Shown here is a 112-nucleotide RNA from Peribacillus deserti, a member of the family "TPP riboswitch aptamer (THI element)".
Nucleotides: 112
Stems, first nucleotide, its partner, number of pairs: 006100005011062004017031004038055005068093004074087004
Number, partner (000 for none) and nucleotide at each position: 001000u002000g003000a004000a005000u006100c007099u008098a009097c010096u011062a012061g013060g014059g015000g016000u017031g018030c019029c020028c021000u022000g023000a024000u025000a026000c027000c028020g029019g030018g031017c032000u033000g034000a035000g036000a037000g038055a039054g040053a041052a042051a043000c044000g045000a046000g047000c048000a049000a050000g051042u052041u053040u054039c055038u056000u057000a058000a059014c060013c061012c062011u063000u064000c065000g066000g067000a068093c069092c070091u071090g072000a073000u074087c075086u076085g077084g078000u079000u080000u081000g082000u083000a084077c085076c086075a087074g088000c089000g090071u091070a092069g093068g094000a095000a096010a097009g098008u099007a100006g101000c102000g103000g104000a105000g106000a107000c108000c109000a110000a111000g112000a
The organism belongs to Peribacillus, within Bacteria.